[Rfam]
RNA: Ribosomal protein L10 leader
Organism: Lawsonibacter faecis
RNA sequence: UUAUACUAUAUUUCGUGUUCAGAGACAGCAGGUGGCUCUAUGCCGUAAGUCCUGCCGAGAAUGCAGUAUAAACGUCUGUUUUGUGCUGUUUUGUGUCUUUGGAUACGAAGCGGCACUUUUUCUUUAUCCCA
Numbered sequence: 001u002u003a004u005a006c007u008a009u010a011u012u013u014c015g016u017g018u019u020c021a022g023a024g025a026c027a028g029c030a031g032g033u034g035g036c037u038c039u040a041u042g043c044c045g046u047a048a049g050u051c052c053u054g055c056c057g058a059g060a061a062u063g064c065a066g067u068a069u070a071a072a073c074g075u076c077u078g079u080u081u082u083g084u085g086c087u088g089u090u091u092u093g094u095g096u097c098u099u100u101g102g103a104u105a106c107g108a109a110g111c112g113g114c115a116c117u118u119u120u121u122c123u124u125u126a127u128c129c130c131a
Stems, first nucleotide, its partner, number of pairs: 028055005034044003083116015